This 33-nucleotide sequence from Psilopogon haemacephalus belongs to the Rfam family "L31-Firmicutes ribosomal protein leader".
The family's RNA type in Rfam is cis-regulatory leader.
A search with the family's covariance model found it, with a score of 34 bits.
RNA sequence: CUCUGUUGUUGAGAAUAUUCAGGGCAAAAGGAG
Numbered sequence: 001c002u003c004u005g006u007u008g009u010u011g012a013g014a015a016u017a018u019u020c021a022g023g024g025c026a027a028a029a030g031g032a033g
Base pairs, nucleotide, nucleotide: 001024002023003022004021005020007017008016009015